A member of the RNA family "SL2 RNA" from Caenorhabditis angaria, 117 nucleotides long. Rfam describes the family as follows. This family represents SL2 RNA. SL2 RNA is involved in trans splicing in lower eukaryotes. Trans-splicing is a form of RNA processing. The acquisition of a spliced leader from a SL RNA is a intra-molecular reaction which precisely joins exons derived from separately transcribed RNAs. Approximately 25% of C. elegans genes are organised into polycistronic transcription units and the presence of SL2 on an mRNA is an indication the the gene is in an operon. It scores 64 bits against the family's covariance model. By type it is a non-coding RNA gene. On this family, see Evans and Blumenthal, Mol Cell Biol 2000: "trans splicing of polycistronic Caenorhabditis elegans pre-mRNAs: analysis of the SL2 RNA". The family is grouped with related families in Rfam's "SL clan". Lineage of the source: Eukaryota > Rhabditina > Rhabditomorpha > Peloderinae > Caenorhabditis.

RNA sequence: GGUUUACACCCUAUUACUCAAGGUAAUUUGAGGUUUCGACCAUUUGAAAGAAUGUGUUGAAAGGAGAUUCAAUUUUUGGAUCAUAUCUAGCUUCUUCGGGGUAUCCGGAGGGGUAAA
Numbered sequence: 001g002g003u004u005u006a007c008a009c010c011c012u013a014u015u016a017c018u019c020a021a022g023g024u025a026a027u028u029u030g031a032g033g034u035u036u037c038g039a040c041c042a043u044u045u046g047a048a049a050g051a052a053u054g055u056g057u058u059g060a061a062a063g064g065a066g067a068u069u070c071a072a073u074u075u076u077u078g079g080a081u082c083a084u085a086u087c088u089a090g091c092u093u094c095u096u097c098g099g100g101g102u103a104u105c106c107g108g109a110g111g112g113g114u115a116a117a
Base pairs, nucleotide, nucleotide: 008034010030013027014026015025016024017023037059038058039057040056041054042053043052044051045050092115094113095112096111097110100106101105